Small nucleolar RNA SNORA13: a 133-nucleotide RNA sequence from Capra hircus. The base pairs follow the family's consensus structure, which was predicted with CMfinder. Taxonomically the source falls in Capra (Eukaryota, Bilateria, Gnathostomata, Euteleostomi). The family is grouped with related families in Rfam's "SNORA13 clan". Rfam describes the family as follows. ACA13 is a member of the H/ACA class of snoRNA that guide the sites of modification of uridines to pseudouridines.

RNA sequence: AGCCUUUGUGUUGCCCAUUCACUUCUGGAAAUCAGUGCCUGUGGUGUCAAAAAAGGUAUAAACCAAACACUUCUGCAGCCUUUCUGCCCUCGUAUUUGAAAUCUUUGGAGUAGAAGCUGCAUAAGUAAUAGCU
Dot-bracket structure: .((((((.((.((((((..((((..........))))..)).)))).))..))))))...........((((.((((((..((((((((..(..........)...)).)))))))))))).)))).......